[Rfam]
RNA sequence: UAUGACGGGCAGUCGCUGCCGCGCGGGCACAGGCCGGGCGGUAGAGGAAAGUCGAGACACGCACACCGGGUGUCCAAAGGACAUUUGGUGUAGUACGGUGCCCGGCGCAAGCCGGGGCAGGGCGACCUGACGACGGCCAAAGAAACCCACCGGGUUUUAAGUAGCUGUAAAGUGCCACAGAAACCAGGUCACCGGGCAACCGGUGAGUGCAAGGGUAAACUCCACCAGCGUGCAACCCAAAUAGGCAGCCUUUGAGCUGCGGGUAGGGGCACCCCCGCAAGGGGGAGGUGAGCAGCAAUGCUCGCCUAGAUAGAUGACUGUCUAGACAGAAUCUCGCUUAUAGUC
Numbered sequence: 001u002a003u004g005a006c007g008g009g010c011a012g013u014c015g016c017u018g019c020c021g022c023g024c025g026g027g028c029a030c031a032g033g034c035c036g037g038g039c040g041g042u043a044g045a046g047g048a049a050a051g052u053c054g055a056g057a058c059a060c061g062c063a064c065a066c067c068g069g070g071u072g073u074c075c076a077a078a079g080g081a082c083a084u085u086u087g088g089u090g091u092a093g094u095a096c097g098g099u100g101c102c103c104g105g106c107g108c109a110a111g112c113c114g115g116g117g118c119a120g121g122g123c124g125a126c127c128u129g130a131c132g133a134c135g136g137c138c139a140a141a142g143a144a145a146c147c148c149a150c151c152g153g154g155u156u157u158u159a160a161g162u163a164g165c166u167g168u169a170a171a172g173u174g175c176c177a178c179a180g181a182a183a184c185c186a187g188g189u190c191a192c193c194g195g196g197c198a199a200c201c202g203g204u205g206a207g208u209g210c211a212a213g214g215g216u217a218a219a220c221u222c223c224a225c226c227a228g229c230g231u232g233c234a235a236c237c238c239a240a241a242u243a244g245g246c247a248g249c250c251u252u253u254g255a256g257c258u259g260c261g262g263g264u265a266g267g268g269g270c271a272c273c274c275c276c277g278c279a280a281g282g283g284g285g286a287g288g289u290g291a292g293c294a295g296c297a298a299u300g301c302u303c304g305c306c307u308a309g310a311u312a313g314a315u316g317a318c319u320g321u322c323u324a325g326a327c328a329g330a331a332u333c334u335c336g337c338u339u340a341u342a343g344u345c
Stems, first nucleotide, its partner, number of pairs: 004345003007341001008322007016044006049339003053336005058232005063091013097226004101116006117131001118129004132222002135166003143157004148153001172220002174216003189206007236268003272285005286307009
This 345-nucleotide sequence from Desulfallas thermosapovorans belongs to the Rfam family "Bacterial RNase P class B". Ribonuclease P (RNase P) is a ubiquitous endoribonuclease, found in archaea, bacteria and eukarya as well as chloroplasts and mitochondria. Its best characterised activity is the generation of mature 5'-ends of tRNAs by cleaving the 5'-leader elements of precursor-tRNAs. The source organism's lineage runs through Bacteria, Bacillati, Clostridia, Eubacteriales and Desulfallas thermosapovorans.